[Rfam]
RNA sequence: GGCUUGUGUUGAGAGGCGGAGUCUUGGGCAAUUGCCGGCAAUCUUAAGAGGCAUUGCACUUGUCUCGGUCUGACAGCACUGGCA
Numbered sequence: 001g002g003c004u005u006g007u008g009u010u011g012a013g014a015g016g017c018g019g020a021g022u023c024u025u026g027g028g029c030a031a032u033u034g035c036c037g038g039c040a041a042u043c044u045u046a047a048g049a050g051g052c053a054u055u056g057c058a059c060u061u062g063u064c065u066c067g068g069u070c071u072g073a074c075a076g077c078a079c080u081g082g083c084a
Stems, first nucleotide, its partner, number of pairs: 002083003006079004014071004019066003023062001028057005034052003
About this RNA
A member of the RNA family "mir-25 microRNA precursor family" from Oncorhynchus kisutch, 84 nucleotides long. A reference for the family is Linsen et al. (2010), "Small RNA expression and strain specificity in the rat", BMC Genomics. Its family is annotated with RISC complex and miRNA-mediated post-transcriptional gene silencing in the Gene Ontology.